The record is a 175-nucleotide sequence from Vitis vinifera, which matches "MIR396 microRNA precursor family" in Rfam. Rfam 15.1 lists 744 matches to the family in 207 species. The literature on the family includes a 2004 paper in Mol Cell by Jones-Rhoades and Bartel, "Computational identification of plant microRNAs and their targets, including a stress-induced miRNA".
[Rfam]
RNA sequence: UUGCAUGCUUUUCCACGGCUUUCUUGAACUUGGAACUUAGGUGUGCUUCUCUCUCUUCUUCUUCUUCUUCUCCUUUCUCUCUACAUCCAUACGUAUGUUUCUCUUCAGAGAAUACUCUUAAUAUGAAAUUAAAUCUUAGUACGAAGUUCAAGAAAGCCGUGGGAAAAUAUGAAAU
Numbered sequence: 001u002u003g004c005a006u007g008c009u010u011u012u013c014c015a016c017g018g019c020u021u022u023c024u025u026g027a028a029c030u031u032g033g034a035a036c037u038u039a040g041g042u043g044u045g046c047u048u049c050u051c052u053c054u055c056u057u058c059u060u061c062u063u064c065u066u067c068u069u070c071u072c073c074u075u076u077c078u079c080u081c082u083a084c085a086u087c088c089a090u091a092c093g094u095a096u097g098u099u100u101c102u103c104u105u106c107a108g109a110g111a112a113u114a115c116u117c118u119u120a121a122u123a124u125g126a127a128a129u130u131a132a133a134u135c136u137u138a139g140u141a142c143g144a145a146g147u148u149c150a151a152g153a154a155a156g157c158c159g160u161g162g163g164a165a166a167a168u169a170u171g172a173a174a175u
Base pairs, nucleotide, nucleotide: 004171005170006169007168013162014161015160017158018157019156020155021154022153024151025150026149027148029146030145031144033142